[Rfam]
RNA sequence: GUGGGGUGAUUCGCAAACACCUGUCAUGGCGGCUGCCACACAUUAAACUAUGGAAUGAUAUUCGGUGCUGAAGGAUGUCUGAGUCCCCUGUGUAGAGGGACCUCCCAUAACAACUUCGGAAUCACCAGAGUUCAUCUCAGGCAGCUGAGAAGGCCUCGGGUGUUGAAGAGUCUGGGAACCGCGUGAGGCAGGAAACUGAGCAACGAGCACUAGCCGUUCUGAAAGAGUGUUAGGACACUGGUCCUGAGCAGGAUCAGAAGGGUCGUCUGCAUUCGGAUAUCAAACCAUUUUUUU
Numbered sequence: 001g002u003g004g005g006g007u008g009a010u011u012c013g014c015a016a017a018c019a020c021c022u023g024u025c026a027u028g029g030c031g032g033c034u035g036c037c038a039c040a041c042a043u044u045a046a047a048c049u050a051u052g053g054a055a056u057g058a059u060a061u062u063c064g065g066u067g068c069u070g071a072a073g074g075a076u077g078u079c080u081g082a083g084u085c086c087c088c089u090g091u092g093u094a095g096a097g098g099g100a101c102c103u104c105c106c107a108u109a110a111c112a113a114c115u116u117c118g119g120a121a122u123c124a125c126c127a128g129a130g131u132u133c134a135u136c137u138c139a140g141g142c143a144g145c146u147g148a149g150a151a152g153g154c155c156u157c158g159g160g161u162g163u164u165g166a167a168g169a170g171u172c173u174g175g176g177a178a179c180c181g182c183g184u185g186a187g188g189c190a191g192g193a194a195a196c197u198g199a200g201c202a203a204c205g206a207g208c209a210c211u212a213g214c215c216g217u218u219c220u221g222a223a224a225g226a227g228u229g230u231u232a233g234g235a236c237a238c239u240g241g242u243c244c245u246g247a248g249c250a251g252g253a254u255c256a257g258a259a260g261g262g263u264c265g266u267c268u269g270c271a272u273u274c275g276g277a278u279a280u281c282a283a284a285c286c287a288u289u290u291u292u293u294u
Base pairs, nucleotide, nucleotide: 001041002040003039004022005021006020007019008018010016011015027038028037029036045293046292047291050288051287052286053285056282057281058280059279060278061277064273065272066271067270068269070267071266076265077264079257080256081255082254087252088251089250090249091248093246097245098244099243100242101241102240105234106233108232109231110230111229112228114225115224116222117221118220119219120218121217122216123162124161125160126159128157129156130155132153133152135150136149137148138147139146140145163169164168170215172213173212174211175210180207182205183204184203189198190197191196

This 294-nucleotide sequence from Planoprotostelium fungivorum belongs to the Rfam family "Metazoan signal recognition particle RNA". It scores 124 bits against the family's covariance model. Rfam classes the family as a non-coding RNA gene. A reference for the family is Wild et al. (2002), "Towards the structure of the mammalian signal recognition particle", Curr Opin Struct Biol. The signal recognition particle (SRP) is a universally conserved ribonucleoprotein. Pairs were carried over by alignment from the consensus structure, which is taken from published work.